This 319-nucleotide RNA sequence from Helicobacter felis belongs to the Rfam family "Bacterial RNase P class A".
RNA sequence: UCGCAUGGGCGGUGGUUGCUUUGGAUCAAACCAAAGAGGAAAGUCCGAGCUACCUAAGACAGGAUUCCAUUUAACGGAUGGCUAGCGUAAGCUAAGGGAAAGUGCCACAGAAACAAACCGCUCGUUAAGAGUAAGGGUGAAAAGGUGGGGUAAGAGCCCACCGCACCCCAAGCAAUUGGGCGUGGCUAGGUAAACCCAAUCCGUAGCAAGAAGCGCAUGGUGAGUCUUAGAUGCAGCGCUUCGCAAGAGGUGGGUUGUAAAACCUAUCCUAGAUAAAUAACCACCCACGACAGAACUCGGCUUAUGCCCAUGCACAUUA
Numbered sequence: 001u002c003g004c005a006u007g008g009g010c011g012g013u014g015g016u017u018g019c020u021u022u023g024g025a026u027c028a029a030a031c032c033a034a035a036g037a038g039g040a041a042a043g044u045c046c047g048a049g050c051u052a053c054c055u056a057a058g059a060c061a062g063g064a065u066u067c068c069a070u071u072u073a074a075c076g077g078a079u080g081g082c083u084a085g086c087g088u089a090a091g092c093u094a095a096g097g098g099a100a101a102g103u104g105c106c107a108c109a110g111a112a113a114c115a116a117a118c119c120g121c122u123c124g125u126u127a128a129g130a131g132u133a134a135g136g137g138u139g140a141a142a143a144g145g146u147g148g149g150g151u152a153a154g155a156g157c158c159c160a161c162c163g164c165a166c167c168c169c170a171a172g173c174a175a176u177u178g179g180g181c182g183u184g185g186c187u188a189g190g191u192a193a194a195c196c197c198a199a200u201c202c203g204u205a206g207c208a209a210g211a212a213g214c215g216c217a218u219g220g221u222g223a224g225u226c227u228u229a230g231a232u233g234c235a236g237c238g239c240u241u242c243g244c245a246a247g248a249g250g251u252g253g254g255u256u257g258u259a260a261a262a263c264c265u266a267u268c269c270u271a272g273a274u275a276a277a278u279a280a281c282c283a284c285c286c287a288c289g290a291c292a293g294a295a296c297u298c299g300g301c302u303u304a305u306g307c308c309c310a311u312g313c314a315c316a317u318u319a
Stems, first nucleotide, its partner, number of pairs: 003313007011285007019036006041303003045300005050206004059228001062202005067081005082096001083094004097197002102195002104191003118136002120132004144162006163186001164184003167180005210242006221235002224232002249268008
Gene Ontology terms of the family: dimeric ribonuclease P complex, ribonuclease P activity and tRNA processing. It scores 252 bits against the family's covariance model. Lineage of the source: Bacteria > Pseudomonadati > Helicobacteraceae > Helicobacter > Helicobacter felis. Rfam classes the family as a ribozyme.